This 97-nucleotide RNA sequence belongs to the Rfam family "c-di-GMP-I-GGC riboswitch aptamer". The literature on the family includes a 2010 paper in Biochemistry by Smith et al., "Structural and biochemical determinants of ligand binding by the c-di-GMP riboswitch ".
RNA sequence: CCUCGAAAAGGCAAACUGCGCGAAAGUGCAGGACGCGAAGGAACGGGUCCUCAUCUAGUGGGAAAAGCGCUCGGCGCGAGCGCCCCUUCUACCUAAG
Numbered sequence: 001c002c003u004c005g006a007a008a009a010g011g012c013a014a015a016c017u018g019c020g021c022g023a024a025a026g027u028g029c030a031g032g033a034c035g036c037g038a039a040g041g042a043a044c045g046g047g048u049c050c051u052c053a054u055c056u057a058g059u060g061g062g063a064a065a066a067g068c069g070c071u072c073g074g075c076g077c078g079a080g081c082g083c084c085c086c087u088u089c090u091a092c093c094u095a096a097g
Base pairs, nucleotide, nucleotide: 001097011036012035016031017030018029019028020027021026034082039090040089041088042087045084046083048079049078
Dot-bracket structure: (.........((...((((((....))))))..[))..((((..((.((............................))..]))..))))......)